[Rfam]
This 71-nucleotide RNA sequence from Stegodyphus mimosarum belongs to the Rfam family "mir-8/mir-141/mir-200 microRNA precursor family".
Nucleotides: 071
Stems, first nucleotide, its partner, number of pairs: 004068001006066004010061005016055012
Number, partner (000 for none) and nucleotide at each position: 001000g002000a003000c004068g005000u006066c007065a008064u009063c010061u011060u012059a013058c014057c015000a016055g017054g018053c019052a020051g021050u022049a023048u024047u025046a026045g027044a028000g029000u030000u031000a032000c033000u034000g035000a036000a037000a038000u039000a040000c041000u042000u043000g044027u045026c046025u047024a048023a049022u050021a051020c052019u053018g054017u055016c056000a057014g058013g059012u060011a061010a062000a063009g064008a065007u066006g067000u068004c069000u070000a071000c
Rfam links the family to the GO terms miRNA-mediated post-transcriptional gene silencing and RISC complex. The literature on the family includes a 2001 paper in Science by Lagos-Quintana et al., "Identification of novel genes coding for small expressed RNAs". Lineage of the source: Eukaryota > Bilateria > Protostomia > Araneomorphae > Stegodyphus.